Rfam assigns this 69-nucleotide RNA from Shewanella gelidii to the family "RNA-OUT". The family's consensus secondary structure was predicted with PFOLD. It scores 42 bits against the family's covariance model. Transposition of insertion sequence IS10 is regulated by an anti-sense RNA which inhibits transposase expression when IS10 is present in multiple copies per cell. The anti-sense RNA (RNA-OUT) consists of a stem domain topped by a flexibly paired loop; the 5' end of the target molecule, RNA-IN, is complementary to the top of the loop, and complementarity extends for 35 base-pairs down one side of RNA-OUT. This bacterial RNA is also found in the genomic sequence of eukaryotic organisms. Lineage of the source: Bacteria > Pseudomonadota > Gammaproteobacteria > Shewanellaceae > Shewanella. It is annotated as an antisense RNA. The literature on the family includes a 1989 paper in J Mol Biol by Kittle et al., "Insertion sequence IS10 anti-sense pairing initiates by an interaction between the 5' end of the target RNA and a loop in the anti-sense RNA".
[Rfam]
RNA sequence: UCGUGCAUGGUGUUGUUCUAGUUUGUUUUUGGCGAAAUUGAUUAGAUCAAACAGCACCAUGCGUGUCUA
Numbered sequence: 001u002c003g004u005g006c007a008u009g010g011u012g013u014u015g016u017u018c019u020a021g022u023u024u025g026u027u028u029u030u031g032g033c034g035a036a037a038u039u040g041a042u043u044a045g046a047u048c049a050a051a052c053a054g055c056a057c058c059a060u061g062c063g064u065g066u067c068u069a
Base pairs, nucleotide, nucleotide: 003064004063005062006061007060008059009058010057011056012055013054014053015052016051033045035043036042